[Rfam]
A member of the RNA family "Microsporidia small subunit ribosomal RNA" from Amblyospora californica, 552 nucleotides of a longer RNA. Its family is annotated with structural constituent of ribosome and ribosome in the Gene Ontology. The organism belongs to Amblyospora, within Eukaryota. The family's consensus secondary structure is taken from published work. For this family Rfam cites "Crystal structure of the ribosome at 5.5 A resolution" (Yusupov et al., Science, 2001).

RNA sequence: UGACGGAAGGACACCACAAGGAGUGGAGUGUGCGGGUUAAUUUGACUCAACGCGGAAACCUUACCCGAGCAAGUAAUAGUCCUAAGAUGUAUGUGCAGAGCAGAGCAUUACCGUGGUGCAUGGCCGUCGUUAACACCUGGAGUGAUCUGUCUGAUUAAAUUCGGUAACGUGUGAGAGGUUGAGCCCGAUGAACUAGCUUGCACAAUAGCUACAUAGUUGGGGACUGCAUGUGUGAGCAUGAGGAAGUAGCGCCCGAUAACAGGUCUGUGAUGCCCGUAGAUGUCCGGGGCUCCACGCGCACUACAAUGAGGUGUGGUUUAUCUUAGUGUUUAACACCUCGUAGUUGGGAUUGAUGCUUGUAACAGUGUCAUGAACGUGGAAUUCCUAGUAGUUGGUAGUCACUAACGACUAACGAAUGCGUCCCUGUUCUUUGUACACACCGCCCGUCGUUAUCUAAGAUGGAAGUGCGGGUGAAGACACGAUGGCAGUAGGCUAGGGUAACUUAGUCUAUAGUGUAAAAACGGGCCUUAGUGGAAGAAUCCGUGCACGUAA
Dot-bracket structure: (((((.(((((((..((..((((((.((((((((((.....(((........)))........((((.((.....((..((......(((....))).....))..))...((.((((..(((((((.(...((((.((((....)))..((((......))))..).)))).....((................................((....))....((.(((((....))))).)).......))....).)).)))...).))))))).....)).))))...)).)))))))).)...((((((....................))))))......(....(((((((......)))))))....).....))))).....((((((.(.......).))))))......))...)))))))))).)).......(..(.(...((((..((.....((..((...(.((...)).).))..)).....))..))))...)..).)...............(((((....)))))........
Numbered sequence: 001u002g003a004c005g006g007a008a009g010g011a012c013a014c015c016a017c018a019a020g021g022a023g024u025g026g027a028g029u030g031u032g033c034g035g036g037u038u039a040a041u042u043u044g045a046c047u048c049a050a051c052g053c054g055g056a057a058a059c060c061u062u063a064c065c066c067g068a069g070c071a072a073g074u075a076a077u078a079g080u081c082c083u084a085a086g087a088u089g090u091a092u093g094u095g096c097a098g099a100g101c102a103g104a105g106c107a108u109u110a111c112c113g114u115g116g117u118g119c120a121u122g123g124c125c126g127u128c129g130u131u132a133a134c135a136c137c138u139g140g141a142g143u144g145a146u147c148u149g150u151c152u153g154a155u156u157a158a159a160u161u162c163g164g165u166a167a168c169g170u171g172u173g174a175g176a177g178g179u180u181g182a183g184c185c186c187g188a189u190g191a192a193c194u195a196g197c198u199u200g201c202a203c204a205a206u207a208g209c210u211a212c213a214u215a216g217u218u219g220g221g222g223a224c225u226g227c228a229u230g231u232g233u234g235a236g237c238a239u240g241a242g243g244a245a246g247u248a249g250c251g252c253c254c255g256a257u258a259a260c261a262g263g264u265c266u267g268u269g270a271u272g273c274c275c276g277u278a279g280a281u282g283u284c285c286g287g288g289g290c291u292c293c294a295c296g297c298g299c300a301c302u303a304c305a306a307u308g309a310g311g312u313g314u315g316g317u318u319u320a321u322c323u324u325a326g327u328g329u330u331u332a333a334c335a336c337c338u339c340g341u342a343g344u345u346g347g348g349a350u351u352g353a354u355g356c357u358u359g360u361a362a363c364a365g366u367g368u369c370a371u372g373a374a375c376g377u378g379g380a381a382u383u384c385c386u387a388g389u390a391g392u393u394g395g396u397a398g399u400c401a402c403u404a405a406c407g408a409c410u411a412a413c414g415a416a417u418g419c420g421u422c423c424c425u426g427u428u429c430u431u432u433g434u435a436c437a438c439a440c441c442g443c444c445c446g447u448c449g450u451u452a453u454c455u456a457a458g459a460u461g462g463a464a465g466u467g468c469g470g471g472u473g474a475a476g477a478c479a480c481g482a483u484g485g486c487a488g489u490a491g492g493c494u495a496g497g498g499u500a501a502c503u504u505a506g507u508c509u510a511u512a513g514u515g516u517a518a519a520a521a522c523g524g525g526c527c528u529u530a531g532u533g534g535a536a537g538a539a540u541c542c543g544u545g546c547a548c549g550u551a552a
Stems, first nucleotide, its partner, number of pairs: 001437002003434003007431007016421002020385005025304001027302008035293002042055003064288004069283002076108002080104002088097003112276002115274004121270001122268001123264003126260002129257001133172004138167001139148003151164004178252002212219002224243002227240005308339006346375001351370007391413006398406001445515001448513001450510001454506004460500002467493002471489002476486001478484002531544005